The family of this 297-nucleotide RNA from Albugo candida is "Metazoan signal recognition particle RNA".
For this family Rfam cites "Towards the structure of the mammalian signal recognition particle" (Wild et al., Curr Opin Struct Biol, 2002).
It scores 158 bits against the family's covariance model.
The organism belongs to Albugo, within Eukaryota.
The signal recognition particle (SRP) is a universally conserved ribonucleoprotein. It is involved in the co-translational targeting of proteins to membranes. The eukaryotic SRP consists of a 300-nucleotide 7S RNA and six proteins: SRPs 72, 68, 54, 19, 14, and 9. Archaeal SRP consists of a 7S RNA and homologues of the eukaryotic SRP19 and SRP54 proteins.
RNA sequence: GCUGAGUUGAGUGGCGUCAACUUGUGACAGGAAGCUUCUGCCUGAGCGAUGGUACUAUCUCUUCGGGCCAAUGCUUGAAACUUCUAUAACCAAGGUGUAGAUGGCAUGUCCAUUCCAAACCAGGGGUAGACAUUGGAAGUCCCACGUAAGUGGUACUGUCAAGGUCUCUAAGGAAGGGCGUAACGCCUCAGGCUGGCUAACAGAGCAGGGAAAAGCCCUCGCUCUUGGUAGUGGAAGGAUCGCGUGCCUGAAUCUUGAGGUGGUUACAAGCAUUGACUGAAGUGAGAGUGCCUUUUU
Numbered sequence: 001g002c003u004g005a006g007u008u009g010a011g012u013g014g015c016g017u018c019a020a021c022u023u024g025u026g027a028c029a030g031g032a033a034g035c036u037u038c039u040g041c042c043u044g045a046g047c048g049a050u051g052g053u054a055c056u057a058u059c060u061c062u063u064c065g066g067g068c069c070a071a072u073g074c075u076u077g078a079a080a081c082u083u084c085u086a087u088a089a090c091c092a093a094g095g096u097g098u099a100g101a102u103g104g105c106a107u108g109u110c111c112a113u114u115c116c117a118a119a120c121c122a123g124g125g126g127u128a129g130a131c132a133u134u135g136g137a138a139g140u141c142c143c144a145c146g147u148a149a150g151u152g153g154u155a156c157u158g159u160c161a162a163g164g165u166c167u168c169u170a171a172g173g174a175a176g177g178g179c180g181u182a183a184c185g186c187c188u189c190a191g192g193c194u195g196g197c198u199a200a201c202a203g204a205g206c207a208g209g210g211a212a213a214a215g216c217c218c219u220c221g222c223u224c225u226u227g228g229u230a231g232u233g234g235a236a237g238g239a240u241c242g243c244g245u246g247c248c249u250g251a252a253u254c255u256u257g258a259g260g261u262g263g264u265u266a267c268a269a270g271c272a273u274u275g276a277c278u279g280a281a282g283u284g285a286g287a288g289u290g291c292c293u294u295u296u297u
Stems, first nucleotide, its partner, number of pairs: 001047003004023007028044003048295002051292006058285002061282004066278002069275009079265003086261002090257001092256005098250001103248007110238002113236005119229009128167004133162004138157003142153004168172001175219005186210003193203003
Dot-bracket structure: ((((((((((......)))))))....(((...........))))))((.((((((.((.((((.((.(((((((((.(((....((..(.(((((.(....(((((((((.(((((.(((((((((((((.((((.(((.((((....)))).))).)))).))))(...)..(((((......(((....(((.....)))....)))....))))).)))))))))..)))))))...))))))).).))))))..)).))).))))))))).)))))).)).)))))).))..